[Rfam]
RNA sequence: GGAGGUCAGUGAUGUGUUUAAUUUGCCUACAUUGUCUGAUUAUCUUUUAUAGAUUUGAUGUUUUCAAAUAACCUGAGACCUCA
Numbered sequence: 001g002g003a004g005g006u007c008a009g010u011g012a013u014g015u016g017u018u019u020a021a022u023u024u025g026c027c028u029a030c031a032u033u034g035u036c037u038g039a040u041u042a043u044c045u046u047u048u049a050u051a052g053a054u055u056u057g058a059u060g061u062u063u064u065c066a067a068a069u070a071a072c073c074u075g076a077g078a079c080c081u082c083a
Stems, first nucleotide, its partner, number of pairs: 002082001004080004
Background:
The record is an 83-nucleotide RNA sequence from Cicer arietinum, which matches "Small nucleolar RNA SNORD34" in Rfam. NCBI's taxonomy places the organism under Eukaryota, Streptophytina, Euphyllophyta, Mesangiospermae, Cicer. From the family's description: snoRNA U34 is found in intron 5 of the ribosomal protein L13a gene in humans. Rfam 15.1 lists 1,319 matches to the family in 583 species. Pairs were carried over by alignment from the consensus structure, which was predicted with PFOLD.